RNA sequence: AUGCCUUAAACUUAUGAGUAAGGAAAAUAACGAUGCAGGGUGAUGCCUGAAUCCUCACUGCUAAUGCGAGAUGAAUUUUUGAGCGGGUAAACCUUGCCCAUAAGGUGACCUGCUUACUUUGUGGGAUGACUGGGAGUCCCAAUCCGCCUG
Dot-bracket structure: ...(((((..........)))))........(((.((((......)))).)))(((.(.......).))).............(((((.....(((....(.((.((.(((((.......))))).)).)).)......)))...)))))
This 150-nucleotide RNA from Carlito syrichta belongs to the Rfam family "U12 minor spliceosomal RNA". Rfam classes the family as a spliceosomal small nuclear RNA. The family is grouped with related families in Rfam's "U2 clan".